[Rfam]
RNA sequence: CAAUCCGCGAGGGGCGGUCCGGAGGAAGCCACUAGCAAAACUGCGAGCCGACGGACAGAAACAUCAUAUAAGGCCUGGCCUUGAGGCGAGUCAGCACCAGAUGACGAAGCCACGUGAUCUAACGGGUAGGGUAAAUGAUGCGGUUGUGCAGUGAAAGUCCAUGCU
Numbered sequence: 001c002a003a004u005c006c007g008c009g010a011g012g013g014g015c016g017g018u019c020c021g022g023a024g025g026a027a028g029c030c031a032c033u034a035g036c037a038a039a040a041c042u043g044c045g046a047g048c049c050g051a052c053g054g055a056c057a058g059a060a061a062c063a064u065c066a067u068a069u070a071a072g073g074c075c076u077g078g079c080c081u082u083g084a085g086g087c088g089a090g091u092c093a094g095c096a097c098c099a100g101a102u103g104a105c106g107a108a109g110c111c112a113c114g115u116g117a118u119c120u121a122a123c124g125g126g127u128a129g130g131g132u133a134a135a136u137g138a139u140g141c142g143g144u145u146g147u148g149c150a151g152u153g154a155a156a157g158u159c160c161a162u163g164c165u
Base pairs, nucleotide, nucleotide: 001016004013005012006011028165030163031162035158036157040152041151042150043149044148045147046145047144048143049142050141062140063139064138065137066136067135073132074131075130078127079126080125081124083123085111086110087109090105091104092103093102